Background
SAM riboswitch aptamer (S box leader): a 141-nucleotide RNA from Nocardioides sp. zg-1228.
[Rfam]
RNA sequence: UGCUCAUCACGAGGGACUGAGGGAACGGCCCGACGAAGUCCCGGCAACCACCCGUGUGCCUCCUGUCCGGACACCCCUCCGGCAGUCACGGGAGCAGGUGCCAAAUCCGACCCCAGCGAGAGUCGCGGGGACAGAUGAGAA
Number, nucleotide and partner (000 for none) at each position: 001u141002g000003c139004u138005c137006a136007u135008c134009a000010c000011g000012a000013g042014g041015g040016a039017c038018u000019g000020a000021g031022g030023g029024a000025a000026c109027g108028g107029c023030c022031c021032g000033a000034c000035g000036a000037a000038g017039u016040c015041c014042c013043g102044g101045c100046a099047a000048c098049c097050a000051c000052c092053c091054g000055u000056g000057u000058g000059c000060c000061u000062c000063c000064u000065g000066u000067c000068c000069g000070g000071a000072c000073a000074c000075c000076c000077c000078u000079c000080c000081g000082g000083c000084a000085g000086u000087c000088a000089c000090g000091g053092g052093a000094g000095c000096a000097g049098g048099u046100g045101c044102c043103a000104a000105a000106u133107c028108c027109g026110a000111c130112c129113c128114c127115a000116g000117c000118g000119a000120g000121a000122g000123u000124c000125g000126c000127g114128g113129g112130g111131a000132c000133a106134g008135a007136u006137g005138a004139g003140a000141a001
The family's consensus secondary structure is taken from published work. Its family is annotated with regulation of gene expression in the Gene Ontology.